Shown here is a 105-nucleotide RNA from Cephalotus follicularis, a member of the family "Plastid-rps12 3UTR RNA". Plastid rpl20 is a non-coding RNA (ncRNA) recognised in plastids. It was found in the three prime untranslated region (3UTR) of rps12 gene, its 3UTR location sugest a role in transcript maduration. A reference for the family is Richter et al. (2023), "Retrograde signaling in plants: A critical review focusing on the GUN pathway and beyond", Plant Commun.

[Rfam]
RNA sequence: GGUUUCCAUUGGUGCAAAUUCAAUUACCUCAAUUAUCAACUUUAGAUGAGAAAAAAUUCCCCUUUGGUAGCAAAUAAUUAUUCACUAAGCGUGGGGAAAUCUUAU
Numbered sequence: 001g002g003u004u005u006c007c008a009u010u011g012g013u014g015c016a017a018a019u020u021c022a023a024u025u026a027c028c029u030c031a032a033u034u035a036u037c038a039a040c041u042u043u044a045g046a047u048g049a050g051a052a053a054a055a056a057u058u059c060c061c062c063u064u065u066g067g068u069a070g071c072a073a074a075u076a077a078u079u080a081u082u083c084a085c086u087a088a089g090c091g092u093g094g095g096g097a098a099a100u101c102u103u104a105u
Stems, first nucleotide, its partner, number of pairs: 009023004059095003062091001064084001066082005